Shown here is a 415-nucleotide sequence from Cytophagales bacterium WSM2-2, a member of the family "Bacterial RNase P class A". Gene Ontology terms of the family: tRNA processing, ribonuclease P activity and dimeric ribonuclease P complex. Rfam classes the family as a ribozyme. Ribonuclease P (RNase P) is a ubiquitous endoribonuclease, found in archaea, bacteria and eukarya as well as chloroplasts and mitochondria.

RNA sequence: AAAGCAAACCGGCUUAUCGCCCCGGUCCCGAUAACUAUCGGGAUUGGGGAGGAAAGUCCGGGCAACAUAGGGCACCGUACUUCCUAACGGGAAGGCUCCGCUCCCGAUAAGGAUCGGUGACAGAUAGCGCCACAGAAAACAAACUACCCCAGGCGACUUGUUCGUUCGGGGAAAAGGUGAAAAGGCGGUGUAAGAGACCACCGGGCUGGCGGUAACGUCAGUUGCAUGGCAAGCCUUACGGGUUGAAAGGCCAAAUAGGUCACAUUUCGAAAGAUGCUGCGGCUCGCAACAUGCGCAAGCUGGUGUGAUUGGGUAGGCUGCUCGAUCCUGAUGGCGACAUCAGGGCCAGAUAAAUGAUAGGCACCUUGACUUAACGGUUAGGGAACAGAACCCGGCUUACAGGUUUGCUUUUAUU
Numbered sequence: 001a002a003a004g005c006a007a008a009c010c011g012g013c014u015u016a017u018c019g020c021c022c023c024g025g026u027c028c029c030g031a032u033a034a035c036u037a038u039c040g041g042g043a044u045u046g047g048g049g050a051g052g053a054a055a056g057u058c059c060g061g062g063c064a065a066c067a068u069a070g071g072g073c074a075c076c077g078u079a080c081u082u083c084c085u086a087a088c089g090g091g092a093a094g095g096c097u098c099c100g101c102u103c104c105c106g107a108u109a110a111g112g113a114u115c116g117g118u119g120a121c122a123g124a125u126a127g128c129g130c131c132a133c134a135g136a137a138a139a140c141a142a143a144c145u146a147c148c149c150c151a152g153g154c155g156a157c158u159u160g161u162u163c164g165u166u167c168g169g170g171g172a173a174a175a176g177g178u179g180a181a182a183a184g185g186c187g188g189u190g191u192a193a194g195a196g197a198c199c200a201c202c203g204g205g206c207u208g209g210c211g212g213u214a215a216c217g218u219c220a221g222u223u224g225c226a227u228g229g230c231a232a233g234c235c236u237u238a239c240g241g242g243u244u245g246a247a248a249g250g251c252c253a254a255a256u257a258g259g260u261c262a263c264a265u266u267u268c269g270a271a272a273g274a275u276g277c278u279g280c281g282g283c284u285c286g287c288a289a290c291a292u293g294c295g296c297a298a299g300c301u302g303g304u305g306u307g308a309u310u311g312g313g314u315a316g317g318c319u320g321c322u323c324g325a326u327c328c329u330g331a332u333g334g335c336g337a338c339a340u341c342a343g344g345g346c347c348a349g350a351u352a353a354a355u356g357a358u359a360g361g362c363a364c365c366u367u368g369a370c371u372u373a374a375c376g377g378u379u380a381g382g383g384a385a386c387a388g389a390a391c392c393c394g395g396c397u398u399a400c401a402g403g404u405u406u407g408c409u410u411u412u413a414u415u
Stems, first nucleotide, its partner, number of pairs: 001411010011400001012362007020049012054398003058395005063245004072296002075241005080094005095121001096119001098117002122236002127234002129230003144176002147171004152166005184202002187199003203225001204223008249319004259309005290302002326345008